[Rfam]
RNA sequence: UUAGUUUAAAUCAUUGUGGGUUUAUACUUUGGAAAUAGAAACCAUACAAAGUGGUGAGACAUAUAUUAAUUUUAUCCAA
Number, nucleotide and partner (000 for none) at each position: 001u079002u078003a000004g076005u000006u074007u000008a072009a071010a070011u069012c000013a067014u000015u065016g064017u063018g062019g000020g000021u000022u057023u056024a055025u053026a052027c051028u050029u049030u048031g047032g000033a000034a000035a000036u000037a000038g000039a000040a000041a000042c000043c000044a000045u000046a000047c031048a030049a029050a028051g027052u026053g025054g000055u024056g023057a022058g000059a000060c000061a000062u018063a017064u016065a015066u000067u013068a000069a011070u010071u009072u008073u000074a006075u000076c004077c000078a002079a001
This 79-nucleotide RNA sequence from Medicago truncatula belongs to the Rfam family "MIR5269 microRNA precursor family". Gene Ontology terms of the family: miRNA-mediated post-transcriptional gene silencing and RISC complex. Pairs were carried over by alignment from the consensus structure, which was predicted with RNAalifold.